RNA sequence: AUCAUUAUAAAAUGAAUUCGUCGUAUAAUCUUGGGGAUAUGGCCCAAAAGUUUCUACCGAGCUGCCGUUAACAGCUUGACUACGAUGCAAAUAUAAGGAGGU
Numbered sequence: 001a002u003c004a005u006u007a008u009a010a011a012a013u014g015a016a017u018u019c020g021u022c023g024u025a026u027a028a029u030c031u032u033g034g035g036g037a038u039a040u041g042g043c044c045c046a047a048a049a050g051u052u053u054c055u056a057c058c059g060a061g062c063u064g065c066c067g068u069u070a071a072c073a074g075c076u077u078g079a080c081u082a083c084g085a086u087g088c089a090a091a092u093a094u095a096a097g098g099a100g101g102u
Stems, first nucleotide, its partner, number of pairs: 019087007029049001031047005058078007
Background: The family of this 102-nucleotide RNA sequence from Bacillus sp. V59.32b is "Purine riboswitch aptamer". The family is grouped with related families in Rfam's "Purine riboswitches".